c-di-AMP riboswitch aptamer (ydaO/yuaA leader): a 140-nucleotide RNA from Nonomuraea sp. C10.

RNA sequence: CGUGUGAACAUGCCUAAUCCUGGGCGAGGUGCCCAGGAGCCGGGGACCCAAUUGCACUUGGGGUGAAUCCACUUCGGUGGUAGGGAGCGCUCCCGUACCCGAACCCGUCAGCUAACCCGGCCGGCAGAGGGAGAGGACCC
Numbered sequence: 001c002g003u004g005u006g007a008a009c010a011u012g013c014c015u016a017a018u019c020c021u022g023g024g025c026g027a028g029g030u031g032c033c034c035a036g037g038a039g040c041c042g043g044g045g046a047c048c049c050a051a052u053u054g055c056a057c058u059u060g061g062g063g064u065g066a067a068u069c070c071a072c073u074u075c076g077g078u079g080g081u082a083g084g085g086a087g088c089g090c091u092c093c094c095g096u097a098c099c100c101g102a103a104c105c106c107g108u109c110a111g112c113u114a115a116c117c118c119g120g121c122c123g124g125c126a127g128a129g130g131g132a133g134a135g136g137a138c139c140c
Stems, first nucleotide, its partner, number of pairs: 011126004018038009039121006049060002061106003069080004083100003